[Rfam]
RNA sequence: UACUUUUGCCGCUCGAAUCACACGAAGUGAGUCGGUACAUAAAAAUCAUUUUAAUAAUAUUGGCAUG
Numbered sequence: 001u002a003c004u005u006u007u008g009c010c011g012c013u014c015g016a017a018u019c020a021c022a023c024g025a026a027g028u029g030a031g032u033c034g035g036u037a038c039a040u041a042a043a044a045a046u047c048a049u050u051u052u053a054a055u056a057a058u059a060u061u062g063g064c065a066u067g
Stems, first nucleotide, its partner, number of pairs: 014034003018030002

This 67-nucleotide sequence belongs to the Rfam family "S15-Flavobacteria ribosomal protein leader". Clan: Ribosomal Protein S15 Leader clan. By type it is a cis-regulatory leader. On this family, see Eckert and Weinberg, BMC Microbiol 2020: "Discovery of 20 novel ribosomal leader candidates in bacteria and archaea". The base pairs follow the family's consensus structure, which is taken from published work.